[Rfam]
RNA sequence: CUCUCAUCAAGAGAGGUGGAGGGAAACGGCCCUACGAAGCCCGGCAACCCGUCUGUGCAAUGCAGGAAGGGUGCCAAUUCCGGCGGAGCAUCAUCCGCAAGAUGAGGG
Number, nucleotide and partner (000 for none) at each position: 001c108002u107003c106004u105005c104006a103007u102008c101009a000010a000011g000012a000013g042014a000015g041016g040017u039018g000019g000020a000021g032022g031023g030024a000025a000026a000027c082028g081029g080030c023031c022032c021033u000034a000035c000036g000037a000038a000039g017040c016041c015042c013043g075044g074045c073046a072047a000048c071049c070050c000051g000052u066053c065054u064055g063056u000057g000058c000059a000060a000061u000062g000063c055064a054065g053066g052067a000068a000069g000070g049071g048072u046073g045074c044075c043076a000077a000078u000079u100080c029081c028082g027083g000084c097085g096086g095087a094088g000089c000090a000091u000092c000093a000094u087095c086096c085097g084098c000099a000100a079101g008102a007103u006104g005105a004106g003107g002108g001
A member of the RNA family "SAM riboswitch aptamer (S box leader)" from Ktedonosporobacter rubrisoli, 108 nucleotides long. The base pairs follow the family's consensus structure, which is taken from published work. The match comes from Rfam's covariance-model search (79 bits).